[Rfam]
RNA: Glycine riboswitch aptamer
RNA sequence: UGACCCCGUGCGGGAGAGCUCUUCGGUGGCAGCACCGGGGAGCGCCGAAGGAGCAACUCCUCCCCGGAAUCUCUCAGGCCCCUGUACCGCACGGAUGAG
Number, nucleotide and partner (000 for none) at each position: 001u000002g000003a000004c000005c000006c094007c093008g092009u091010g090011c089012g088013g087014g000015a000016g000017a000018g000019c042020u041021c040022u039023u038024c037025g036026g035027u034028g033029g000030c000031a000032g000033c028034a027035c026036c025037g024038g023039g022040g021041a020042g019043c000044g079045c078046c077047g075048a074049a000050g000051g073052a072053g071054c000055a000056a000057c067058u066059c000060c000061u000062c000063c000064c000065c000066g058067g057068a000069a000070u000071c053072u052073c051074u048075c047076a000077g046078g045079c044080c000081c000082c000083u000084g000085u000086a000087c013088c012089g011090c010091a009092c008093g007094g006095a000096u000097g000098a000099g000